U4atac minor spliceosomal RNA: a 121-nucleotide sequence from Achlya hypogyna.
By type it is a spliceosomal small nuclear RNA.
U4atac is an essential component of the minor U12-type spliceosome complex which is required for removal of the rarer class of eukaryotic introns (AT-AC, U12-type).
A reference for the family is Lorkovic et al. (2005), "Evolutionary conservation of minor U12-type spliceosome between plants and humans", RNA.
[Rfam]
Nucleotides: 121
Base pairs, nucleotide, nucleotide: 005019006018007017008016020059021058025054026053027052028051029050030049031048037045038044085108086107088105089104091103092102093101
Number, partner (000 for none) and nucleotide at each position: 001000a002000c003000a004000g005019u006018c007017c008016u009000u010000g011000u012000c013000g014000a015000u016008g017007g018006g019005a020059g021058c022000u023000c024000g025054u026053u027052a028051c029050g030049u031048c032000u033000a034000u035000g036000a037045a038044c039000g040000c041000c042000u043000a044038g045037u046000g047000a048031g049030a050029u051028g052027u053026g054025a055000c056000c057000u058021g059020c060000u061000g062000a063000c064000a065000a066000c067000c068000c069000c070000c071000u072000a073000a074000a075000c076000a077000a078000a079000c080000a081000c082000a083000a084000a085108g086107u087000g088105u089104c090000c091103a092102c093101a094000a095000u096000a097000u098000u099000u100000a101093u102092g103091u104089g105088g106000a107086g108085c109000a110000a111000u112000u113000u114000c115000u116000g117000g118000a119000g120000c121000u